[Rfam]
Nucleotides: 449
Stems, first nucleotide, its partner, number of pairs: 001389006011024005026131001027129007038122001040118008053105001054103002059099003063095004070088002072085005135160010165176003180351004185347003191341003200338001202337006219313002223310010240297005246270003251265003271275001276291001280289002352379011390444001392441007400434001402432001409428005415422002
Number, partner (000 for none) and nucleotide at each position: 001389c002388u003387c004386c005385c006384c007000g008000a009000a010000a011024u012023a013022g014021c015020u016000u017000u018000a019000g020015g021014g022013c023012u024011a025000g026131c027129c028128u029127c030126a031125g032124c033123c034000g035000a036000u037000g038122a039000a040118g041117c042116c043115c044114a045113g046112g047111g048000a049000g050000g051000u052000a053105g054103a055102g056000c057000a058000c059099u060098g061097g062000u063095u064094g065093g066092g067000c068000g069000a070088g071087g072085g073084g074083c075082g076081g077000g078000g079000a080000u081076c082075c083074g084073c085072u086000g087071c088070c089000g090000a091000g092066u093065c094064c095063a096000g097061u098060c099059a100000a101000a102055c103054u104000c105053c106000g107000a108000a109000u110000g111047c112046c113045c114044u115043g116042g117041g118040u119000g120000g121000a122038u123033g124032g125031c126030u127029g128028g129027g130000a131026g132000u133000c134000g135160g136159a137158c138157c139156g140155u141154g142153g143152g144151g145000g146000a147000u148000a149000a150000g151144c152143u153142c154141c155140a156139u157138g158137g159136u160135c161000g162000a163000g164000a165176g166175g167174g168000g169000a170000a171000c172000a173000g174167c175166c176165c177000a178000g179000a180351u181350c182349a183348a184000c185347a186346g187345c188000u189000a190000a191341g192340g193339c194000c195000c196000c197000a198000a199000a200338g201000u202337c203336c204335g205334g206333g207332c208000u209000a210000a211000g212000u213000g214000g215000u216000a217000a218000a219313g220312g221000a222000g223310g224309u225308a226307g227306c228305u229304u230303g231302g232301c233000g234000a235000a236000g237000a238000c239000a240297g241296u242295c243294a244293g245000g246270a247269u248268g249000u250000u251265g252264g253263c254000u255000u256000a257000g258000a259000a260000g261000c262000a263253g264252c265251c266000a267000u268248c269247a270246u271275u272000u273000a274000a275271a276291g277000a278000g279000u280289g281288c282000g283000u284000a285000a286000u287000a288281g289280c290000u291276c292000a293244c294243u295242g296241a297240u298000c299000g300000a301232g302231c303230c304229a305228a306227g307226c308225u309224g310223c311000g312220c313219c314000g315000a316000a317000a318000a319000u320000a321000c322000a323000c324000g325000g326000g327000g328000c329000u330000a331000a332207g333206c334205c335204c336203g337202g338200c339193g340192c341191c342000g343000a344000a345187g346186c347185u348183u349182u350181g351180g352379g353378u354377u355376c356375u357374a358373c359372c360371u361370a362369u363000c364000u365000u366000c367000g368000g369362a370361u371360a372359g373358g374357u375356a376355g377354a378353g379352c380000g381000g382000u383000a384006g385005g386004g387003g388002a389001g390444c391000g392441u393440u394439c395438c396437g397436c398435u399000g400434u401000a402432g403000g404000g405000a406000g407000a408000a409428g410427g411426c412425g413424g414000a415422c416421c417000g418000g419000a420000a421416g422415g423000a424413c425412c426411g427410c428409u429000g430000g431000a432402c433000g434400a435398g436397g437396c438395g439394g440393a441392a442000g443000u444390g445000a446000g447000a448000a449000u